[Rfam]
RNA sequence: CUGCGGUGAUGACCACUUAGGACACCUUUGGAUUGAACCAUGAAAACAAACUGUUAACUCUGAGCAGC
Numbered sequence: 001c002u003g004c005g006g007u008g009a010u011g012a013c014c015a016c017u018u019a020g021g022a023c024a025c026c027u028u029u030g031g032a033u034u035g036a037a038c039c040a041u042g043a044a045a046a047c048a049a050a051c052u053g054u055u056a057a058c059u060c061u062g063a064g065c066a067g068c
Stems, first nucleotide, its partner, number of pairs: 001067004
RNA: Small nucleolar RNA SNORD58
Organism: Dicentrarchus labrax